A member of the RNA family "Group II catalytic intron D1-D4-2" from Micromonospora sp. Llam0, 118 nucleotides long. The organism belongs to Micromonospora, within Bacteria. The literature on the family includes a 2001 paper in Trends Genet by Bonen and Vogel, "The ins and outs of group II introns". The match comes from Rfam's covariance-model search (93 bits). Group II introns are found in rRNA, tRNA and mRNA of organelles in fungi, plants and protists, and also in mRNA in bacteria.
RNA sequence: GAAGGUUUGGCCCUUCGGAGUCGCUCUGCUGGGGGAGGCUUCAAACCACCUCAUGCUGCAUUAGCUGAAGACUGUUGUGGUGAACGAUGGGGAAAGGCAUCCAUUCGAGAUGUCAGGU
Number, nucleotide and partner (000 for none) at each position: 001g016002a015003a014004g013005g012006u000007u000008u000009g000010g000011c000012c005013c004014u003015u002016c001017g042018g041019a040020g039021u038022c037023g000024c035025u034026c033027u032028g000029c000030u000031g000032g027033g026034g025035g024036a000037g022038g021039c020040u019041u018042c017043a000044a000045a000046c000047c117048a000049c092050c091051u090052c089053a088054u087055g081056c080057u000058g078059c077060a076061u000062u074063a073064g072065c000066u000067g000068a000069a000070g000071a000072c064073u063074g062075u000076u060077g059078u058079g000080g056081u055082g000083a000084a000085c000086g000087a054088u053089g052090g051091g050092g049093a000094a000095a000096g114097g113098c112099a111100u110101c109102c000103a000104u000105u000106c000107g000108a000109g101110a100111u099112g098113u097114c096115a000116g000117g047118u000